The record is a 72-nucleotide RNA sequence from Mytilus coruscus, which matches "tRNA" in Rfam.
The match comes from Rfam's covariance-model search (59 bits).
Rfam links the family to the GO term triplet codon-amino acid adaptor activity.
Transfer RNA (tRNA) molecules are approximately 80 nucleotides in length.
[Rfam]
RNA sequence: GGGGGUAUAGCUCAGUGGUAGAGCAUUCGACUGCAGAUCGAGAGGUCCCCGGUUCGAAACCAGGUGCCCCUU
Number, nucleotide and partner (000 for none) at each position: 001g071002g070003g069004g068005g067006u066007a065008u000009a000010g024011c023012u022013c021014a000015g000016u000017g000018g000019u000020a000021g013022a012023g011024c010025a000026u042027u041028c040029g039030a038031c000032u000033g000034c000035a000036g000037a000038u030039c029040g028041a027042g026043a000044g000045g000046u000047c000048c064049c063050c000051g061052g060053u000054u000055c000056g000057a000058a000059a000060c052061c051062a000063g049064g048065u007066g006067c005068c004069c003070c002071u001072u000
Overview:
It is annotated as a transfer RNA.